[Rfam]
Nucleotides: 166
Base pairs, nucleotide, nucleotide: 011151012150013149014148019041020040021039022038023037024036025035026034027033043146044145045144046143047142048141053065066131067130068129074104075103076102077101107125108124109123110122
Number, partner (000 for none) and nucleotide at each position: 001000g002000c003000a004000a005000g006000g007000u008000c009000a010000c011151c012150g013149c014148c015000u016000a017000a018000u019041c020040g021039g022038c023037c024036a025035c026034c027033u028000c029000u030000u031000c032000c033027g034026g035025g036024u037023g038022g039021u040020c041019g042000u043146a044145c045144c046143g047142g048141g049000a050000a051000c052000c053065c054000a055000c056000c057000g058000u059000u060000a061000c062000a063000c064000c065053g066131g067130g068129g069000u070000g071000a072000a073000u074104c075103c076102c077101g078000u079000c080000g081000u082000a083000g084000u085000c086000g087000c088000a089000c090000c091000a092000g093000c094000g095000g096000c097000u098000c099000g100000u101077c102076g103075g104074g105000u106000a107125g108124g109123g110122c111000u112000g113000a114000u115000c116000u117000u118000c119000c120000c121000a122110g123109c124108c125107c126000g127000a128000a129068c130067c131066c132000g133000u134000c135000a136000g137000c138000u139000a140000a141048c142047u143046c144045g145044g146043u147000c148014g149013g150012c151011g152000g153000a154000u155000a156000u157000c158000a159000g160000g161000a162000a163000g164000a165000a166000a